[Rfam]
RNA: Nematode sRNA ceN72-3_ceN74-2
RNA sequence: CACUCGGUCCGGAGUUGAUGGGUUAUCUAUGAAUCUUCUUCUGCUUGCAGAAGGAACCCGUUCUUCAGAUGUAAGUCUGUUGAACACCCCGCAACCCUCAAAAAGUUGCAACCCGAUCCCAUCAACACCAACUUGACCGUUGU
Numbered sequence: 001c002a003c004u005c006g007g008u009c010c011g012g013a014g015u016u017g018a019u020g021g022g023u024u025a026u027c028u029a030u031g032a033a034u035c036u037u038c039u040u041c042u043g044c045u046u047g048c049a050g051a052a053g054g055a056a057c058c059c060g061u062u063c064u065u066c067a068g069a070u071g072u073a074a075g076u077c078u079g080u081u082g083a084a085c086a087c088c089c090c091g092c093a094a095c096c097c098u099c100a101a102a103a104a105g106u107u108g109c110a111a112c113c114c115g116a117u118c119c120c121a122u123c124a125a126c127a128c129c130a131a132c133u134u135g136a137c138c139g140u141u142g143u
Stems, first nucleotide, its partner, number of pairs: 002143002005139005011129002014126009037054007059071004091109005